A member of the RNA family "Xanthomonadaceae sRNA sX13" from Luteimonas granuli, 115 nucleotides long.
It is annotated as a small RNA.
The base pairs follow the family's consensus structure, which was predicted with CMfinder.
A reference for the family is Schmidtke et al. (2011), "Genome-wide transcriptome analysis of the plant pathogen Xanthomonas identifies sRNAs with putative virulence functions", Nucleic Acids Res.

RNA sequence: AAGGUCUGUCGCAGAUCACUCCCCUCCCCUGGAGUUGAUCGACCCCGGAACGACGGCUUCUCCCCGAGCCCCGUUCUCCAGCCCCGCCGGCCCCCCCUGCCUGCGGGGCUUUUUC
Dot-bracket structure: ...(.(....)).(((((((((........)))).)))))......((((((..((((........)))).))))))..((((((((.(((.......))).)))))))).....